[Rfam]
A member of the RNA family "DUF805b RNA" from Chryseobacterium sp. Leaf180, 34 nucleotides long. The family is grouped with related families in Rfam's "DUF805 clan". The family's consensus secondary structure is taken from published work. The match comes from Rfam's covariance-model search (40 bits).
RNA sequence: AAGGAGUUCGCCGAAAAUCCUGAAAGAGUAGGCA
Numbered sequence: 001a002a003g004g005a006g007u008u009c010g011c012c013g014a015a016a017a018u019c020c021u022g023a024a025a026g027a028g029u030a031g032g033c034a
Stems, first nucleotide, its partner, number of pairs: 002021004010033003